Description
The family of this 81-nucleotide RNA from Sinorhizobium saheli is "chrB-a RNA". A search with the family's covariance model found it, with a score of 57 bits. The source organism's lineage runs through Bacteria, Pseudomonadati, Pseudomonadota, Alphaproteobacteria and Sinorhizobium. Pairs were carried over by alignment from the consensus structure, which is taken from published work.
RNA sequence: UGCAUGGGGCGAGCGAAUGCCUCACGAGGCGUCAGGCCGGAAUUUCGCGUCCGAUAGCAACCUAAAGGACGUCGUAUCAUG
Numbered sequence: 001u002g003c004a005u006g007g008g009g010c011g012a013g014c015g016a017a018u019g020c021c022u023c024a025c026g027a028g029g030c031g032u033c034a035g036g037c038c039g040g041a042a043u044u045u046c047g048c049g050u051c052c053g054a055u056a057g058c059a060a061c062c063u064a065a066a067g068g069a070c071g072u073c074g075u076a077u078c079a080u081g
Stems, first nucleotide, its partner, number of pairs: 005024006047072006